[Rfam]
Notes: Rfam assigns this 98-nucleotide sequence from Vulpes vulpes to the family "mir-544 microRNA precursor family". Its family is annotated with miRNA-mediated post-transcriptional gene silencing and RISC complex in the Gene Ontology. The source organism's lineage runs through Eukaryota, Tetrapoda, Boreoeutheria, Carnivora and Vulpes. For this family Rfam cites "Mammalian microRNAs: experimental evaluation of novel and previously annotated genes" (Chiang et al., Genes Dev, 2010). The family's consensus secondary structure was predicted with RNAalifold.
RNA sequence: GUAACCUGGGGAUCUUGUUGAAAGGCAGACUCUGAUUCAGCAGAUCUGGGGUGGGACCCAAGAUUCUGCAUUUCUAACAGGUUCUUAGGUGUUGUUGC
Number, nucleotide and partner (000 for none) at each position: 001g000002u000003a000004a090005c089006c000007u000008g000009g085010g084011g083012a000013u000014c081015u080016u079017g078018u077019u076020g075021a073022a072023a071024g000025g069026c068027a067028g066029a065030c000031u063032c062033u061034g000035a000036u000037u000038c000039a000040g000041c000042a000043g000044a000045u000046c000047u000048g000049g000050g000051g000052u000053g000054g000055g000056a000057c000058c000059c000060a000061a033062g032063a031064u000065u029066c028067u027068g026069c025070a000071u023072u022073u021074c000075u020076a019077a018078c017079a016080g015081g014082u000083u011084c010085u009086u000087a000088g000089g005090u004091g000092u000093u000094g000095u000096u000097g000098c000